The record is a 75-nucleotide sequence from Saccharothrix syringae, which matches "ASpks TB sRNA" in Rfam.
It is annotated as an antisense RNA.
For this family Rfam cites "Identification of small RNAs in Mycobacterium tuberculosis" (Arnvig and Young, Mol Microbiol, 2009).

RNA sequence: CUUCAACGACCCCAGCCACAGCGGCGAUUCGGCCGUGUGCGCCCGCCCGUAGGUGGCCAGCAGUGCCUGCGCCUC
Numbered sequence: 001c002u003u004c005a006a007c008g009a010c011c012c013c014a015g016c017c018a019c020a021g022c023g024g025c026g027a028u029u030c031g032g033c034c035g036u037g038u039g040c041g042c043c044c045g046c047c048c049g050u051a052g053g054u055g056g057c058c059a060g061c062a063g064u065g066c067c068u069g070c071g072c073c074u075c
Stems, first nucleotide, its partner, number of pairs: 015025003032070002038065002043060001045058001047056003